A member of the RNA family "S4-Clostridia ribosomal protein leader", 95 nucleotides long. Rfam's curators put it in the seed alignment. The literature on the family includes a 2020 paper in BMC Microbiol by Eckert and Weinberg, "Discovery of 20 novel ribosomal leader candidates in bacteria and archaea". Clan: Ribosomal Protein S4 Leader clan.
RNA sequence: GAAAGGCUGCAGUGAAAUAUUCGCAGGUUCGGAAAGUGAUCGUCACACUUUGCCCACAGACUGCAGCUGGGCGUUACCGAGGCGCCUCAAUUAGG
Numbered sequence: 001g002a003a004a005g006g007c008u009g010c011a012g013u014g015a016a017a018u019a020u021u022c023g024c025a026g027g028u029u030c031g032g033a034a035a036g037u038g039a040u041c042g043u044c045a046c047a048c049u050u051u052g053c054c055c056a057c058a059g060a061c062u063g064c065a066g067c068u069g070g071g072c073g074u075u076a077c078c079g080a081g082g083c084g085c086c087u088c089a090a091u092u093a094g095g
Stems, first nucleotide, its partner, number of pairs: 005068008069087007